[Rfam]
MIR2617 microRNA precursor family: an 88-nucleotide sequence from Medicago truncatula. The base pairs follow the family's consensus structure, which was predicted with RNAalifold. It scores 56 bits against the family's covariance model.
RNA sequence: UUGUAGUGUGACAUGCCCGUUUGGGAUAUACUCUGAUAUGAUUAUUUAUUAAUUAAUUGCUUUGGGGAUAACGGGGUGUUACAUGUUG
Numbered sequence: 001u002u003g004u005a006g007u008g009u010g011a012c013a014u015g016c017c018c019g020u021u022u023g024g025g026a027u028a029u030a031c032u033c034u035g036a037u038a039u040g041a042u043u044a045u046u047u048a049u050u051a052a053u054u055a056a057u058u059g060c061u062u063u064g065g066g067g068a069u070a071a072c073g074g075g076g077u078g079u080u081a082c083a084u085g086u087u088g
Stems, first nucleotide, its partner, number of pairs: 002088002006084009016075006